RNA sequence: ACAAUGAUACUCCACCUAUGGACGUCCGAGCGUGAAAAGACCGUCGCAGGCUAAAUAGGUGCUUCCUUGAUUGGGAGUGGUGAAACUCCAGUGA
Numbered sequence: 001a002c003a004a005u006g007a008u009a010c011u012c013c014a015c016c017u018a019u020g021g022a023c024g025u026c027c028g029a030g031c032g033u034g035a036a037a038a039g040a041c042c043g044u045c046g047c048a049g050g051c052u053a054a055a056u057a058g059g060u061g062c063u064u065c066c067u068u069g070a071u072u073g074g075g076a077g078u079g080g081u082g083a084a085a086c087u088c089c090a091g092u093g094a
Stems, first nucleotide, its partner, number of pairs: 012091001013061007062077003066073001078090003
This 94-nucleotide sequence from Erysipelothrix sp. HDW6B belongs to the Rfam family "pemK RNA". The match comes from Rfam's covariance-model search (40 bits). The source organism's lineage runs through Bacteria, Bacillota, Erysipelotrichales, Erysipelotrichaceae and Erysipelothrix.